Background:
FMN riboswitch aptamer (RFN element): a 170-nucleotide RNA from Nitratireductor indicus. The source organism's lineage runs through Bacteria, Pseudomonadati, Hyphomicrobiales, Nitratireductor and Nitratireductor indicus. Pairs were carried over by alignment from the consensus structure, which is taken from published work.

RNA sequence: CCGCGUUCUCAGGGCGGGGCGAAAUUCCCCACCGGCGGUAUGCGGCUUCGGGCCGCGAGCCCGCGAGCGCUUUCCCGGUCCGGCUCCCACAGGGGCGGUUUCGGAAAAGGCCAGCAGAUCAGGUGAGAUGCCUGAGCCGACGGUUACAGUCCGGAUGAAAGAGAACGAGC
Numbered sequence: 001c002c003g004c005g006u007u008c009u010c011a012g013g014g015c016g017g018g019g020c021g022a023a024a025u026u027c028c029c030c031a032c033c034g035g036c037g038g039u040a041u042g043c044g045g046c047u048u049c050g051g052g053c054c055g056c057g058a059g060c061c062c063g064c065g066a067g068c069g070c071u072u073u074c075c076c077g078g079u080c081c082g083g084c085u086c087c088c089a090c091a092g093g094g095g096c097g098g099u100u101u102c103g104g105a106a107a108a109g110g111c112c113a114g115c116a117g118a119u120c121a122g123g124u125g126a127g128a129u130g131c132c133u134g135a136g137c138c139g140a141c142g143g144u145u146a147c148a149g150u151c152c153g154g155a156u157g158a159a160a161g162a163g164a165a166c167g168a169g170c
Stems, first nucleotide, its partner, number of pairs: 004167007017029003031150002033139002035064004059137002067115002119135005141153003